The record is a 77-nucleotide sequence from Alligator mississippiensis, which matches "Mammalian CPEB3 ribozyme" in Rfam.
Nucleotides: 077
Stems, first nucleotide, its partner, number of pairs: 016045004022077002025074001027072001029041003049066007
Number, partner (000 for none) and nucleotide at each position: 001000a002000g003000u004000u005000c006000a007000c008000a009000a010000c011000u012000u013000u014000g015000a016045g017044g018043c019042u020000a021000u022077a023076g024000c025074a026000a027072a028000u029041a030040c031039a032000c033000u034000u035000a036000u037000a038000g039031u040030g041029u042019g043018g044017c045016c046000u047000g048000u049066c050065a051064g052063a053062u054061u055060c056000c057000a058000a059000u060055g061054a062053a063052u064051c065050u066049g067000c068000a069000a070000a071000u072027u073000c074025u075000a076023c077022u